[Rfam]
RNA sequence: GAGGGGUCGGGCGAUGAAGUCCGCCUUGAACCGCCGUCCUGGCUGAUGACUUCUCUUCUCCA
Dot-bracket structure: .........[[[[..((((((]]]].......(((.....)))....)))))).........